[Rfam]
A member of the RNA family "Guanidine-I riboswitch aptamer" from Methylopila turkensis, 108 nucleotides long.
RNA sequence: GUGCAGAGCGUCUAGGGUUCCGGCCGCCUCAGGCGGCGCUGGUCCAAGAGACGCACUUUCCGCUGCCUCUCAUGCGGAAAGACACGGCGGGGCAAAAUCCCGGGAGGU
Numbered sequence: 001g002u003g004c005a006g007a008g009c010g011u012c013u014a015g016g017g018u019u020c021c022g023g024c025c026g027c028c029u030c031a032g033g034c035g036g037c038g039c040u041g042g043u044c045c046a047a048g049a050g051a052c053g054c055a056c057u058u059u060c061c062g063c064u065g066c067c068u069c070u071c072a073u074g075c076g077g078a079a080a081g082a083c084a085c086g087g088c089g090g091g092g093c094a095a096a097a098u099c100c101c102g103g104g105a106g107g108u
Base pairs, nucleotide, nucleotide: 008054009053010052011051012050015045016044020042021041022039023037024036025035026034027033028032056081057080058079059078060077061076062075063074083103085106089101090100091099
Record summary
This family represents a conserved RNA structure found upstream of the ykkC and yxkD genes in Bacillus subtilis and related genes in other bacteria. The function of this family is unclear although it has been suggested that it may function to switch on efflux pumps and detoxification systems in response to harmful environmental molecules.